[Rfam]
RNA sequence: UCCAGUUAUGGUGACAUGGUACCGCAAACUACCUCUGGGAAGAUUGUGGGUAGCCUGUGUUCACUCAGUGGUGUUCUUGUGAUUGCCCUGCCUGUUCCAGUCAUUGUGUCUAAU
Dot-bracket structure: (..((.(((((.(((..((.((..............((((.........(...........)...........))))................))))..))).))))).)).).
RNA: Potassium channel RNA editing signal
Organism: Stylophora pistillata